[Rfam]
RNA sequence: CCCGCUAUAGUGGCCGCGUCAUUGGGGAGUAGCUGCUUUCCGCAAGGAAAGAGCCGACGUCAACACACUUGGUCGCAUGGCCAUGGCGUCGGCAGCACCCGCAGGGCGAGACCUUUGACCUCGUUGUCCACAGCCGGCUGGCGAUGGAGAACGGGGUCAUUGCGCUCCAUCGCCAGCC
Numbered sequence: 001c002c003c004g005c006u007a008u009a010g011u012g013g014c015c016g017c018g019u020c021a022u023u024g025g026g027g028a029g030u031a032g033c034u035g036c037u038u039u040c041c042g043c044a045a046g047g048a049a050a051g052a053g054c055c056g057a058c059g060u061c062a063a064c065a066c067a068c069u070u071g072g073u074c075g076c077a078u079g080g081c082c083a084u085g086g087c088g089u090c091g092g093c094a095g096c097a098c099c100c101g102c103a104g105g106g107c108g109a110g111a112c113c114u115u116u117g118a119c120c121u122c123g124u125u126g127u128c129c130a131c132a133g134c135c136g137g138c139u140g141g142c143g144a145u146g147g148a149g150a151a152c153g154g155g156g157u158c159a160u161u162g163c164g165c166u167c168c169a170u171c172g173c174c175a176g177c178c
Stems, first nucleotide, its partner, number of pairs: 036051003053093010070083005
A member of the RNA family "Manganese Mn2+ riboswitch aptamer (yybP-ykoY)" from Panacagrimonas perspica, 178 nucleotides long. NCBI's taxonomy places the organism under Bacteria, Pseudomonadati, Gammaproteobacteria, Nevskiaceae, Panacagrimonas. This RNA was originally discovered in E. coli during a large scale screen and was named SraF. The family was later found to exist upstream of related families of protein genes in many bacteria, including the the yybP and ykoK genes in B. subtilis.